[Rfam]
RNA: mir-5890 microRNA precursor family
Organism: Haemonchus placei
RNA sequence: UUUAUGCGGCAGCAUAGAACUGAAUUGUGGGAGGACUUAUAUGGUUCUACCCCUCUUAAUUUUUAUGCUGCUUUGGAG
Numbered sequence: 001u002u003u004a005u006g007c008g009g010c011a012g013c014a015u016a017g018a019a020c021u022g023a024a025u026u027g028u029g030g031g032a033g034g035a036c037u038u039a040u041a042u043g044g045u046u047c048u049a050c051c052c053c054u055c056u057u058a059a060u061u062u063u064u065a066u067g068c069u070g071c072u073u074u075g076g077a078g
Stems, first nucleotide, its partner, number of pairs: 008072012021059001023057002027053001029052003032048004036043001